[Rfam]
RNA sequence: AUCUUUAAUAGGUUUAAAGGGUACCUAGACGGUAUAAUUAGUCUAAAAUAAGAUACGGUUAUACUAGAGUUAUAUAUGAGGAGGUGAGUAUUUGUGGAGUAGAGUUAAAAUUUUUUGAUACCAUAAAGACUGGUAACGGCGAAAGCAACCUUUUAUCUAAUAACUGACGUUGAGGGACGAAGGCUCGGGUAACAAACAGGAUUAGAUACCCUAGUAGUCCAAGCAGAGAAUUAUGAAUGCCAUAGAUUAGAUAUUUUUAGUCUAUAAAUGAAAGUGUAAGCAUUUCACCUCAAGAGUAAUGCGGCAACGCAGGAACUGAAAUCAUU
Number, nucleotide and partner (000 for none) at each position: 001a000002u000003c000004u000005u000006u000007a000008a000009u000010a000011g289012g288013u287014u000015u000016a000017a000018a000019g286020g000021g178022u177023a000024c175025c000026u172027a000028g171029a170030c169031g000032g064033u063034a062035u061036a060037a059038u058039u000040a000041g056042u053043c052044u051045a000046a000047a000048a000049u000050a000051a044052g043053a042054u000055a000056c041057g000058g038059u037060u036061a035062u034063a033064c032065u000066a000067g000068a165069g164070u163071u000072a000073u159074a158075u000076a156077u000078g000079a154080g153081g152082a151083g150084g149085u148086g000087a131088g130089u000090a000091u127092u126093u125094g124095u123096g122097g121098a000099g000100u000101a000102g113103a112104g111105u000106u000107a000108a000109a000110a000111u104112u103113u102114u000115u000116u000117g000118a000119u000120a000121c097122c096123a095124u094125a093126a092127a091128g000129a000130c088131u087132g000133g000134u000135a000136a000137c000138g000139g146140c145141g000142a000143a000144a000145g140146c139147a000148a085149c084150c083151u082152u081153u080154u079155a000156u076157c000158u074159a073160a000161u000162a000163a070164c069165u068166g000167a000168c000169g030170u029171u028172g026173a000174g000175g024176g000177a022178c021179g000180a000181a000182g000183g224184c223185u222186c000187g220188g219189g000190u000191a000192a218193c217194a000195a000196a000197c000198a212199g211200g210201a000202u000203u000204a000205g000206a000207u000208a000209c000210c200211c199212u198213a000214g000215u000216a000217g193218u192219c188220c187221a000222a185223g184224c183225a000226g000227a000228g000229a000230a000231u000232u000233a000234u000235g285236a284237a283238u282239g281240c280241c000242a000243u264244a263245g262246a261247u260248u259249a258250g257251a256252u000253a000254u000255u000256u251257u250258u249259a248260g247261u246262c245263u244264a243265u000266a000267a000268a275269u274270g000271a000272a000273a000274g269275u268276g000277u000278a000279a000280g240281c239282a238283u237284u236285u235286c019287a013288c012289c011290u000291c318292a317293a000294g000295a000296g000297u000298a000299a000300u311301g310302c309303g308304g000305c000306a000307a000308c303309g302310c301311a300312g000313g000314a000315a000316c000317u292318g291319a000320a000321a000322u000323c000324a000325u000326u000
Bacterial small subunit ribosomal RNA: a 326-nucleotide part of an RNA.
The base pairs follow the family's consensus structure, which is taken from published work.